RNA sequence: UCCUUCUGCAUUAACAGAAGUCUGCUAUAAUUGCAUGGUCCAGAUUUUUAUUUGUUCCAUGCAAUAAUGCUAGCAGAUUAUUGAGUAGAAGGAGAUUGAUGUGCACUGCAUUGAAAAUGGGAUGUUGUCGAACCUCUUUCUUAAUGUUCGUUGGCCUCUAUCUCGAGGUGCAGUGCCACACUC
Numbered sequence: 001u002c003c004u005u006c007u008g009c010a011u012u013a014a015c016a017g018a019a020g021u022c023u024g025c026u027a028u029a030a031u032u033g034c035a036u037g038g039u040c041c042a043g044a045u046u047u048u049u050a051u052u053u054g055u056u057c058c059a060u061g062c063a064a065u066a067a068u069g070c071u072a073g074c075a076g077a078u079u080a081u082u083g084a085g086u087a088g089a090a091g092g093a094g095a096u097u098g099a100u101g102u103g104c105a106c107u108g109c110a111u112u113g114a115a116a117a118u119g120g121g122a123u124g125u126u127g128u129c130g131a132a133c134c135u136c137u138u139u140c141u142u143a144a145u146g147u148u149c150g151u152u153g154g155c156c157u158c159u160a161u162c163u164c165g166a167g168g169u170g171c172a173g174u175g176c177c178a179c180a181c182u183c
Base pairs, nucleotide, nucleotide: 020078021077023075024074025073026072027071030068031067032066033065036059037058041054042053043052044051045050103176104175105174106173107172108171109170110169125154127152129150130149131148132147
Description: Rfam assigns this 183-nucleotide sequence from Mola mola to the family "Small nucleolar RNA SNORA81". On this family, see Gu et al., Nucleic Acids Res 2005: "A novel experimental approach for systematic identification of box H/ACA snoRNAs from eukaryotes". Taxonomically the source falls in Mola (Eukaryota, Actinopterygii, Neoteleostei, Percomorphaceae). It is annotated as an H/ACA-box small nucleolar RNA. The family's consensus secondary structure was predicted with WAR.